[Rfam]
RNA: Plastid-psbM 3UTR RNA
RNA sequence: GAUCCGAGAGUAUGGUAAGUAAGAAAUGAAUUUCUUACUUACCAUACUCUCUAUUAGUGUUAUAGUAGACCAAAACAUGCCACU
Numbered sequence: 001g002a003u004c005c006g007a008g009a010g011u012a013u014g015g016u017a018a019g020u021a022a023g024a025a026a027u028g029a030a031u032u033u034c035u036u037a038c039u040u041a042c043c044a045u046a047c048u049c050u051c052u053a054u055u056a057g058u059g060u061u062a063u064a065g066u067a068g069a070c071c072a073a074a075a076c077a078u079g080c081c082a083c084u
Stems, first nucleotide, its partner, number of pairs: 006051012019038008